About this RNA
Shown here is an 83-nucleotide RNA sequence from Rhynchophorus ferrugineus, a member of the family "mir-1923 microRNA precursor family". NCBI's taxonomy places the organism under Eukaryota, Mandibulata, Pancrustacea, Eumetabola, Rhynchophorus. The match comes from Rfam's covariance-model search (96 bits). Rfam links the family to the GO terms RISC complex and miRNA-mediated post-transcriptional gene silencing.
RNA sequence: UUGCCAUUUAAAAUGGUGGCUCCGAUAACGUUCUUCAUUAAUUUUUUAAUGACCAAUCGCGUACCGUUGCACUGCCUUGGCGG
Numbered sequence: 001u002u003g004c005c006a007u008u009u010a011a012a013a014u015g016g017u018g019g020c021u022c023c024g025a026u027a028a029c030g031u032u033c034u035u036c037a038u039u040a041a042u043u044u045u046u047u048a049a050u051g052a053c054c055a056a057u058c059g060c061g062u063a064c065c066g067u068u069g070c071a072c073u074g075c076c077u078u079g080g081c082g083g
Base pairs, nucleotide, nucleotide: 002082003081004080005079006078012068013067014066015065016064017063018062023059024058025057026056032055035052036051037050038049039048040047041046
Dot-bracket structure: .(((((.....(((((((....((((.....(..(((((((....)))))))..)))))..))))))).........))))).